This 39-nucleotide RNA from Escherichia coli belongs to the Rfam family "JUMPstart RNA". It scores 54 bits against the family's covariance model. The source organism's lineage runs through Bacteria, Enterobacterales, Enterobacteriaceae, Escherichia and Escherichia coli. Rfam classes the family as a cis-regulatory element. The family's consensus secondary structure is taken from published work.

RNA sequence: CAGUGUAUUGGUAGCUGUUAAGCCAGGGGCGGUAGCAUA
Numbered sequence: 001c002a003g004u005g006u007a008u009u010g011g012u013a014g015c016u017g018u019u020a021a022g023c024c025a026g027g028g029g030c031g032g033u034a035g036c037a038u039a
Base pairs, nucleotide, nucleotide: 008026009025010024011023012022
Dot-bracket structure: .......(((((.........))))).............